[Rfam]
RNA sequence: AAAAAGGGUCGGUUGGCUAAAUAUGCCACGCUAGCCCUAGUUUGGUUAGUGCUGUAUGGAAAUCAAGACAUAUGGCCGACAUCAUUUUUGGAAACCUCUAGGGUUGGCUCCUUGGCCGACCCUUUU
Numbered sequence: 001a002a003a004a005a006g007g008g009u010c011g012g013u014u015g016g017c018u019a020a021a022u023a024u025g026c027c028a029c030g031c032u033a034g035c036c037c038u039a040g041u042u043u044g045g046u047u048a049g050u051g052c053u054g055u056a057u058g059g060a061a062a063u064c065a066a067g068a069c070a071u072a073u074g075g076c077c078g079a080c081a082u083c084a085u086u087u088u089u090g091g092a093a094a095c096c097u098c099u100a101g102g103g104u105u106g107g108c109u110c111c112u113u114g115g116c117c118g119a120c121c122c123u124u125u126u
Base pairs, nucleotide, nucleotide: 008080009079010078011077012076014028015027016026017025029051030050031049032048033047034046035045036044052075053074054073055072056071057070058069100123101122102121103120104119105118106117107116109115110114
Background:
Rfam assigns this 126-nucleotide sequence from Salvia splendens to the family "U11 spliceosomal RNA". For this family Rfam cites "Additional low-abundance human small nuclear ribonucleoproteins: U11, U12, etc" (Montzka and Steitz, Proc Natl Acad Sci U S A, 1988). A search with the family's covariance model found it, with a score of 73 bits. Pairs were carried over by alignment from the consensus structure, which is taken from published work. It is annotated as a spliceosomal small nuclear RNA.